[Rfam]
Rfam assigns this 414-nucleotide part of an RNA from Lepeophtheirus salmonis to the family "Eukaryotic large subunit ribosomal RNA". The organism belongs to Lepeophtheirus, within Eukaryota.

RNA sequence: AAUACCUGAAAUAAGCAAGAUUACCCGCUGAACUUAAGCAUAUCAGUAAGCGGAGGAAAAGAAAAUAACAAUGAUUGCCUCAGUAGCGGCGAGUGAAGAGGCAAAAGCCCAAGAUGUUAAUCUAUGCAAAAACAUAGAAUUGUAAUCUAUGGAAUAGCUCAGAAAGCUGAAGUCUGCCAUAAGUCCCUUGGAAUAGGGUGCCAGAGAGGGUGAAAGCCCCGUCUUCGGGUAGGACAAAGCAAUAUGAGAUGUUUCCAAGAGUCGGGUAGUUUGGGAAUGCUGCCCUAAUUGGGAGAUAACCUUCUCCUAAGGCUAAAUAUUUAUAGGAGACCGAUAGCAUACAAGUACUGCGAAGGAAAGAUGAAAAGAACUUUGAAAAGAGGGUUAAAAGACUUGAAAUCGUUGAAAAGGAAG
Numbered sequence: 001a002a003u004a005c006c007u008g009a010a011a012u013a014a015g016c017a018a019g020a021u022u023a024c025c026c027g028c029u030g031a032a033c034u035u036a037a038g039c040a041u042a043u044c045a046g047u048a049a050g051c052g053g054a055g056g057a058a059a060a061g062a063a064a065a066u067a068a069c070a071a072u073g074a075u076u077g078c079c080u081c082a083g084u085a086g087c088g089g090c091g092a093g094u095g096a097a098g099a100g101g102c103a104a105a106a107g108c109c110c111a112a113g114a115u116g117u118u119a120a121u122c123u124a125u126g127c128a129a130a131a132a133c134a135u136a137g138a139a140u141u142g143u144a145a146u147c148u149a150u151g152g153a154a155u156a157g158c159u160c161a162g163a164a165a166g167c168u169g170a171a172g173u174c175u176g177c178c179a180u181a182a183g184u185c186c187c188u189u190g191g192a193a194u195a196g197g198g199u200g201c202c203a204g205a206g207a208g209g210g211u212g213a214a215a216g217c218c219c220c221g222u223c224u225u226c227g228g229g230u231a232g233g234a235c236a237a238a239g240c241a242a243u244a245u246g247a248g249a250u251g252u253u254u255c256c257a258a259g260a261g262u263c264g265g266g267u268a269g270u271u272u273g274g275g276a277a278u279g280c281u282g283c284c285c286u287a288a289u290u291g292g293g294a295g296a297u298a299a300c301c302u303u304c305u306c307c308u309a310a311g312g313c314u315a316a317a318u319a320u321u322u323a324u325a326g327g328a329g330a331c332c333g334a335u336a337g338c339a340u341a342c343a344a345g346u347a348c349u350g351c352g353a354a355g356g357a358a359a360g361a362u363g364a365a366a367a368g369a370a371c372u373u374u375g376a377a378a379a380g381a382g383g384g385u386u387a388a389a390a391g392a393c394u395u396g397a398a399a400u401c402g403u404u405g406a407a408a409a410g411g412a413a414g
Stems, first nucleotide, its partner, number of pairs: 024055001025053005035042002065072002076103005086094002106314004113146001115144003119140001121138006152255002154252003159248001166240003173233006183199001185198004202206001209219002264285007291308005348355002371382004